[Rfam]
About this RNA:
A member of the RNA family "SAM-I/IV (S-adenosyl methionine) riboswitch aptamer" from Flavobacterium aciduliphilum, 95 nucleotides long. Gene Ontology terms of the family: regulation of gene expression and S-adenosylmethionine metabolic process. The match comes from Rfam's covariance-model search (49 bits). The family's consensus secondary structure is taken from published work.

RNA sequence: GCAAAGUAUUUCGAACCCAUUAUGGGUACCAACCGAGUGUAGACACCACGGUGGUAAAACAAUACGGGCCUGUCCGGUCAAAAUAAACGCCUGUU
Number, nucleotide and partner (000 for none) at each position: 001g000002c000003a000004a000005a000006g065007u064008a063009u062010u061011u000012c000013g000014a000015a027016c026017c025018c024019a023020u000021u000022a000023u019024g018025g017026g016027u015028a055029c054030c053031a000032a000033c051034c050035g049036a000037g046038u045039g000040u000041a000042g000043a000044c000045a038046c037047c000048a000049c035050g034051g033052u000053g030054g029055u028056a000057a000058a000059a000060c000061a010062a009063u008064a007065c006066g000067g079068g078069c077070c076071u000072g000073u000074c000075c000076g070077g069078u068079c067080a000081a000082a000083a000084u000085a000086a000087a000088c000089g000090c000091c000092u000093g000094u000095u000